[Rfam]
RNA sequence: AUUCUGGAAAGCUUUUUGAAAGCACCGAAGGAGCAAUAUCUCAAUGAUAGAAUCUCUCAGGUAAAAAUACAGGAU
Dot-bracket structure: ((((((......(((....))).(((((..(((...((.........))....))))).))).......))))))
This 75-nucleotide RNA sequence from Vallitalea guaymasensis belongs to the Rfam family "Glycine riboswitch aptamer".
It scores 48 bits against the family's covariance model.